[Rfam]
RNA: Small nucleolar RNA U54
Organism: Arabis nemorensis
RNA sequence: GACUCUGUGAUGACUUUGCCUAAUUGGCAAUAUACGCUAUUCUUAAAUCUUUUAUGAAAGAUAAAUGCAUUAAUUUUAAAUGAGAGCC
Numbered sequence: 001g002a003c004u005c006u007g008u009g010a011u012g013a014c015u016u017u018g019c020c021u022a023a024u025u026g027g028c029a030a031u032a033u034a035c036g037c038u039a040u041u042c043u044u045a046a047a048u049c050u051u052u053u054a055u056g057a058a059a060g061a062u063a064a065a066u067g068c069a070u071u072a073a074u075u076u077u078a079a080a081u082g083a084g085a086g087c088c
Stems, first nucleotide, its partner, number of pairs: 001088001003086003